This 61-nucleotide RNA sequence from Pristionchus pacificus belongs to the Rfam family "mir-8364 microRNA precursor family". The source organism's lineage runs through Eukaryota, Eumetazoa, Ecdysozoa, Rhabditida and Pristionchus. Rfam 15.1 lists 3,320 matches to the family in 2 species.

RNA sequence: UCUUCAUUCCUCACACUCUCUCGCUGAUCAGAGUGACGAGAGAGCGUGGGAAAUGGUGAGA
Numbered sequence: 001u002c003u004u005c006a007u008u009c010c011u012c013a014c015a016c017u018c019u020c021u022c023g024c025u026g027a028u029c030a031g032a033g034u035g036a037c038g039a040g041a042g043a044g045c046g047u048g049g050g051a052a053a054u055g056g057u058g059a060g061a
Stems, first nucleotide, its partner, number of pairs: 001059002004056004010050001012048003016044002019041004